[Rfam]
RNA sequence: CGCUUGCAGCUAGACUUGCCUAUAGUUACUUAUCUAGGCUUUUGUCUAGUGCACUCUUCUAUAGGCAGGCUAGUAUUAGUUUAGGCAGUUAGAUAAAGGUCUCUAUUACGUACCUCCCUUUAGGGAGGCCUUAUAGGGGAGACAACAUGUAACUAGCCUAGACUAAGGUCCGCGCAUCUGCUAGGAUGCUAGCAUAAUAGCUGUAAGCGGCCUAUCUUAAAAUAUAG
Number, nucleotide and partner (000 for none) at each position: 001c209002g208003c207004u206005u205006g204007c203008a202009g201010c200011u199012a198013g000014a000015c000016u000017u067018g066019c065020c064021u063022a062023u061024a060025g000026u000027u000028a000029c000030u000031u000032a000033u000034c000035u000036a000037g000038g000039c000040u000041u000042u000043u000044g000045u000046c000047u000048a000049g000050u000051g000052c000053a000054c000055u000056c000057u000058u000059c000060u024061a023062u022063a021064g020065g019066c018067a017068g000069g000070c000071u191072a190073g189074u188075a187076u186077u185078a000079g000080u000081u000082u000083a000084g000085g000086c000087a000088g000089u000090u000091a000092g000093a000094u000095a000096a000097a000098g000099g000100u000101c000102u000103c000104u000105a000106u000107u000108a000109c000110g000111u000112a000113c000114c000115u000116c000117c000118c000119u000120u000121u000122a000123g000124g000125g000126a000127g000128g000129c000130c000131u000132u000133a000134u000135a000136g000137g000138g000139g000140a000141g000142a000143c000144a000145a000146c000147a000148u000149g000150u000151a000152a000153c000154u000155a000156g000157c000158c000159u000160a000161g000162a000163c000164u000165a000166a000167g000168g000169u000170c000171c000172g000173c000174g000175c000176a000177u000178c000179u000180g000181c000182u000183a000184g000185g077186a076187u075188g074189c073190u072191a071192g000193c000194a000195u000196a000197a000198u012199a011200g010201c009202u008203g007204u006205a005206a004207g003208c002209g001210g000211c000212c227213u226214a225215u224216c000217u000218u000219a000220a000221a000222a000223u000224a215225u214226a213227g212
RNA: Eukaryotic large subunit ribosomal RNA, nucleotides 422 to 648